[Rfam]
RNA sequence: AACUACACUAUCAAUGAAUGGAUUCACCUGUGAGAUGACGUGGUUGUUCCAACUAGGAUGGGGACAUUGCAUCCUAUUAAUUUCGUGUGAUGGCUGGUAAUAGGAUGCUACGACCUUGUCCUAAGUGGAACAGCCAUGUCAUAUCACGGGUGAAUCCAUUCAUUGAUAGCGUUGUU
Numbered sequence: 001a002a003c004u005a006c007a008c009u010a011u012c013a014a015u016g017a018a019u020g021g022a023u024u025c026a027c028c029u030g031u032g033a034g035a036u037g038a039c040g041u042g043g044u045u046g047u048u049c050c051a052a053c054u055a056g057g058a059u060g061g062g063g064a065c066a067u068u069g070c071a072u073c074c075u076a077u078u079a080a081u082u083u084c085g086u087g088u089g090a091u092g093g094c095u096g097g098u099a100a101u102a103g104g105a106u107g108c109u110a111c112g113a114c115c116u117u118g119u120c121c122u123a124a125g126u127g128g129a130a131c132a133g134c135c136a137u138g139u140c141a142u143a144u145c146a147c148g149g150g151u152g153a154a155u156c157c158a159u160u161c162a163u164u165g166a167u168a169g170c171g172u173u174g175u176u
Stems, first nucleotide, its partner, number of pairs: 001176003005172002009168007017160003021156008030147004035142005041136008051126001054123002057120002063114001065112001069108011
Dot-bracket structure: (((.((..(((((((.(((.((((((((.((((.(((((.((((((((..(..((.((....(.(...(((((((((((..................)))))))))))...).)....)).))..)..)))))))).))))).)))).)))))))).))).)))))))..)).)))

This 176-nucleotide RNA from Oryza glumipatula belongs to the Rfam family "MIR807 microRNA precursor family". The organism belongs to Oryza, within Eukaryota. Pairs were carried over by alignment from the consensus structure, which was predicted with WAR. The literature on the family includes a 2006 paper in FEBS Lett by Luo et al., "Rice embryogenic calli express a unique set of microRNAs, suggesting regulatory roles of microRNAs in plant post-embryogenic development". Rfam links the family to the GO terms miRNA-mediated post-transcriptional gene silencing and RISC complex. It scores 156 bits against the family's covariance model.